[Rfam]
RNA: Molybdenum/Tungsten riboswitch aptamer (Moco RNA motif)
RNA sequence: UAAAAAAUGAUUCUCCGAGCAGCCGAGCCUAAAGAAGGUGAUCCAUGGCUCUCCUGCCGACAGGGUCGUCGAGGAAACGCGGCGGCCUCCCUUUGGAAAGGAGAAGGGCUGCUCUGCUU
Number, nucleotide and partner (000 for none) at each position: 001u000002a000003a113004a000005a000006a110007a000008u000009g000010a000011u105012u104013c103014u102015c101016c100017g000018a000019g057020c056021a055022g054023c000024c000025g051026a050027g049028c048029c047030u000031a000032a000033a000034g043035a042036a000037g000038g000039u000040g000041a000042u035043c034044c000045a000046u000047g029048g028049c027050u026051c025052u000053c000054c022055u021056g020057c019058c000059g000060a000061c000062a000063g088064g087065g086066u085067c084068g083069u082070c081071g080072a000073g078074g000075a000076a000077a000078c073079g000080c071081g070082g069083c068084g067085g066086c065087c064088u063089c096090c095091c000092u000093u000094u000095g090096g089097a000098a000099a000100g016101g015102a014103g013104a012105a011106g000107g000108g000109c000110u006111g000112c000113u003114c000115u000116g000117c000118u000119u000